A member of the RNA family "mir-101 microRNA precursor family" from Ictalurus punctatus, 59 nucleotides long. For this family Rfam cites "Identification of tissue-specific microRNAs from mouse" (Lagos-Quintana et al., Curr Biol, 2002). The source organism's lineage runs through Eukaryota, Otomorpha, Siluriformes, Ictaluridae and Ictalurus. Its family is annotated with RISC complex and miRNA-mediated post-transcriptional gene silencing in the Gene Ontology.
[Rfam]
RNA sequence: UCAGUUAUCACAGUGCUGAUGCUGUCCAUCUUAAAGGUACAGUACUGUGAUAACUGAAG
Numbered sequence: 001u002c003a004g005u006u007a008u009c010a011c012a013g014u015g016c017u018g019a020u021g022c023u024g025u026c027c028a029u030c031u032u033a034a035a036g037g038u039a040c041a042g043u044a045c046u047g048u049g050a051u052a053a054c055u056g057a058a059g
Stems, first nucleotide, its partner, number of pairs: 002056015018040001020039004